[Rfam]
RNA sequence: AAAUUUCGAGUUACAGUCAUUCUUCAGGUGGUUUAAAUAUGUAAACCACCUGAAGAUGACUGUAACUCGAAAAUUU
Numbered sequence: 001a002a003a004u005u006u007c008g009a010g011u012u013a014c015a016g017u018c019a020u021u022c023u024u025c026a027g028g029u030g031g032u033u034u035a036a037a038u039a040u041g042u043a044a045a046c047c048a049c050c051u052g053a054a055g056a057u058g059a060c061u062g063u064a065a066c067u068c069g070a071a072a073a074u075u076u
Stems, first nucleotide, its partner, number of pairs: 001076003004072005014062008024053011
RNA: mir-181 microRNA precursor family
Organism: Octopus sinensis